Notes: Rfam assigns this 139-nucleotide sequence from Chitinimonas sp. BJB300 to the family "Group II catalytic intron D1-D4-4". A search with the family's covariance model found it, with a score of 99 bits. A reference for the family is Bonen and Vogel (2001), "The ins and outs of group II introns", Trends Genet. Lineage of the source: Bacteria > Pseudomonadati > Pseudomonadota > Betaproteobacteria > Chitinimonas. Gene Ontology term of the family: Group II intron splicing.
[Rfam]
RNA sequence: CAGCGGGUGCGAACCCCGCCCGGCAACUUUCGCUCCAGCCGGUAGCAAUCGGAGCAGUCGUGGAGGUAACGAAGCGGCUGAAGCCUUCGGUGUAGAGGGUCAUAUUAGUGACUUGGCGAGUAUGCAGGCAGUAACGUGA
Numbered sequence: 001c002a003g004c005g006g007g008u009g010c011g012a013a014c015c016c017c018g019c020c021c022g023g024c025a026a027c028u029u030u031c032g033c034u035c036c037a038g039c040c041g042g043u044a045g046c047a048a049u050c051g052g053a054g055c056a057g058u059c060g061u062g063g064a065g066g067u068a069a070c071g072a073a074g075c076g077g078c079u080g081a082a083g084c085c086u087u088c089g090g091u092g093u094a095g096a097g098g099g100u101c102a103u104a105u106u107a108g109u110g111a112c113u114u115g116g117c118g119a120g121u122a123u124g125c126a127g128g129c130a131g132u133a134a135c136g137u138g139a
Stems, first nucleotide, its partner, number of pairs: 020042005050089005055080006065070001097114006116132002
Rfam describes the family as follows. Group II introns are found in rRNA, tRNA and mRNA of organelles in fungi, plants and protists, and also in mRNA in bacteria.